ALIL pseudoknot: a 117-nucleotide RNA. Rfam 15.1 lists 2,146 matches to the family in 1,098 species. The match comes from Rfam's covariance-model search (101 bits). Gene Ontology term of the family: positive regulation of translational frameshifting.
RNA sequence: CGCUUAUUUUGCGAAGGCGGAGUUCGACCGCCUGUGGAAAAAGUAACACCCCUGGUGGAUGCCCUGCGCGACGAAUACGGGGUCGGACCGGUAUGCCACGAGCUGGAUAUCGCCCCG
Number, nucleotide and partner (000 for none) at each position: 001c000002g000003c000004u000005u000006a000007u000008u000009u000010u000011g000012c000013g000014a000015a000016g032017g031018c030019g029020g028021a000022g000023u000024u000025c000026g000027a000028c020029c019030g018031c017032c016033u000034g000035u000036g000037g000038a000039a000040a000041a000042a000043g000044u000045a000046a000047c000048a000049c000050c000051c000052c000053u000054g000055g000056u000057g000058g000059a000060u000061g000062c000063c000064c000065u000066g000067c000068g000069c000070g000071a000072c000073g000074a000075a000076u000077a000078c117079g116080g115081g114082g113083u000084c000085g000086g000087a000088c000089c112090g111091g000092u109093a108094u107095g000096c105097c000098a000099c000100g000101a000102g000103c000104u000105g096106g000107a094108u093109a092110u000111c090112g089113c082114c081115c080116c079117g078